[Rfam]
RNA sequence: CAACCAUCCCAACGGCUUCCUGACGGGGUGUGAUGACAAAUCGGAGCA
Numbered sequence: 001c002a003a004c005c006a007u008c009c010c011a012a013c014g015g016c017u018u019c020c021u022g023a024c025g026g027g028g029u030g031u032g033a034u035g036a037c038a039a040a041u042c043g044g045a046g047c048a
Stems, first nucleotide, its partner, number of pairs: 005030006013022002015047003019044002

This 48-nucleotide sequence from Jannaschia donghaensis belongs to the Rfam family "SAM/SAH riboswitch aptamer". A search with the family's covariance model found it, with a score of 46 bits. Pairs were carried over by alignment from the consensus structure, which is taken from published work. For this family Rfam cites "The structure of the SAM/SAH-binding riboswitch" (Weickhmann et al., Nucleic Acids Res, 2019). The source organism's lineage runs through Bacteria, Pseudomonadati, Alphaproteobacteria, Roseobacteraceae and Jannaschia.